[Rfam]
RNA sequence: GAACCCUUGCCAAACACUCUGGCCCAUACCUCCUUUUCCUCUGGAAUCGGUUCAAUCUAUGGUAUAGGCCUAUUUUUGAAGCAAGGAGAAUGAUCGAGUCCGUUUACUCACCGCGAUAUCCUGCCUUUGGCUGUGGUUAUGGUGGUCCAUAUCUUUCUGGUCGACAC
Numbered sequence: 001g002a003a004c005c006c007u008u009g010c011c012a013a014a015c016a017c018u019c020u021g022g023c024c025c026a027u028a029c030c031u032c033c034u035u036u037u038c039c040u041c042u043g044g045a046a047u048c049g050g051u052u053c054a055a056u057c058u059a060u061g062g063u064a065u066a067g068g069c070c071u072a073u074u075u076u077u078g079a080a081g082c083a084a085g086g087a088g089a090a091u092g093a094u095c096g097a098g099u100c101c102g103u104u105u106a107c108u109c110a111c112c113g114c115g116a117u118a119u120c121c122u123g124c125c126u127u128u129g130g131c132u133g134u135g136g137u138u139a140u141g142g143u144g145g146u147c148c149a150u151a152u153c154u155u156u157c158u159g160g161u162c163g164a165c166a167c
Stems, first nucleotide, its partner, number of pairs: 007084003021070004027064004032050002098162001100160002111145004116140003121136002

The family of this 167-nucleotide sequence from Hyphodiscus hymeniophilus is "Small nucleolar RNA snR80".
Rfam 15.1 lists 447 matches to the family in 358 species.
Pairs were carried over by alignment from the consensus structure, which was predicted with WAR.
The family is grouped with related families in Rfam's "SNORA28 clan".
On this family, see Schattner et al., Nucleic Acids Res 2004: "Genome-wide searching for pseudouridylation guide snoRNAs: analysis of the Saccharomyces cerevisiae genome".
Rfam links the family to the GO terms RNA processing and nucleolus.
Lineage of the source: Eukaryota > Leotiomycetes > Helotiales > Hyphodiscaceae > Hyphodiscus.